[Rfam]
RNA sequence: AAGAUGCACCAGGGGUGCCUGCACGGCUGCAUCUGCAUGAGCCUUGGCUAUUAAGUUAGCACGCUCGCAGUUCGGGCUGAGACAGUCCCUUCAAAUCUGAUCAGGGUGAUGCCUGCGUAGGGAGCGUUCAUUAUUUUUUCU
Numbered sequence: 001a002a003g004a005u006g007c008a009c010c011a012g013g014g015g016u017g018c019c020u021g022c023a024c025g026g027c028u029g030c031a032u033c034u035g036c037a038u039g040a041g042c043c044u045u046g047g048c049u050a051u052u053a054a055g056u057u058a059g060c061a062c063g064c065u066c067g068c069a070g071u072u073c074g075g076g077c078u079g080a081g082a083c084a085g086u087c088c089c090u091u092c093a094a095a096u097c098u099g100a101u102c103a104g105g106g107u108g109a110u111g112c113c114u115g116c117g118u119a120g121g122g123a124g125c126g127u128u129c130a131u132u133a134u135u136u137u138u139u140c141u
Base pairs, nucleotide, nucleotide: 006129008127009126011090012089013088014087016084017077018076019075020074021073096121097120098119099118102115103114104113105112

This 141-nucleotide RNA belongs to the Rfam family "TPP riboswitch aptamer (THI element)". Rfam links the family to the GO term thiamine pyrophosphate binding.